[Rfam]
Background: Rfam assigns this 105-nucleotide RNA sequence from Brassica oleracea to the family "MIR9563 microRNA precursor family". A search with the family's covariance model found it, with a score of 97 bits.

RNA sequence: GGAAUAUAAGAAUCUGUCUCUUAACUUUUAACUAAAAAAGUUAAGAAUCGGCUCUUAAAUCUUAGUUUUUUUAGUUAAAAGUUAAGAGACGGAUUCUUAUAUUCU
Numbered sequence: 001g002g003a004a005u006a007u008a009a010g011a012a013u014c015u016g017u018c019u020c021u022u023a024a025c026u027u028u029u030a031a032c033u034a035a036a037a038a039a040g041u042u043a044a045g046a047a048u049c050g051g052c053u054c055u056u057a058a059a060u061c062u063u064a065g066u067u068u069u070u071u072u073a074g075u076u077a078a079a080a081g082u083u084a085a086g087a088g089a090c091g092g093a094u095u096c097u098u099a100u101a102u103u104c105u
Base pairs, nucleotide, nucleotide: 001105002104003103004102005101006100007099008098009097010096011095012094013093014092015091016090017089018088019087020086021085022084023083024082025081026080027079028078029077030076031075032074033073034072035071036070037069038068039067041065042064043063044062045061046060